[Rfam]
RNA sequence: CAUCACAAAUAUCAUGGUGGAAUUGCAAGUUGUCUUGCCAUCCGCCAUUCGUGGUUGA
Numbered sequence: 001c002a003u004c005a006c007a008a009a010u011a012u013c014a015u016g017g018u019g020g021a022a023u024u025g026c027a028a029g030u031u032g033u034c035u036u037g038c039c040a041u042c043c044g045c046c047a048u049u050c051g052u053g054g055u056u057g058a
Stems, first nucleotide, its partner, number of pairs: 002055005008049003013044001016042005022036001025033002